[Rfam]
RNA sequence: UAUUGGUAUCAAGAGCGGGAUUAAAUUCUCCUCCAACCUGCCAACUCCGGCAAGGUGGAAAAAAUGAUGCGGUUAACCAACAACCAAAGGAGUCUAA
Numbered sequence: 001u002a003u004u005g006g007u008a009u010c011a012a013g014a015g016c017g018g019g020a021u022u023a024a025a026u027u028c029u030c031c032u033c034c035a036a037c038c039u040g041c042c043a044a045c046u047c048c049g050g051c052a053a054g055g056u057g058g059a060a061a062a063a064a065u066g067a068u069g070c071g072g073u074u075a076a077c078c079a080a081c082a083a084c085c086a087a088a089g090g091a092g093u094c095u096a097a
Stems, first nucleotide, its partner, number of pairs: 006070005015031001017030004032059003037055003040051003044093005072081003

Shown here is a 97-nucleotide sequence, a member of the family "SAM-I/IV (S-adenosyl methionine) riboswitch aptamer".
Pairs were carried over by alignment from the consensus structure, which is taken from published work.
Rfam's curators put it in the seed alignment.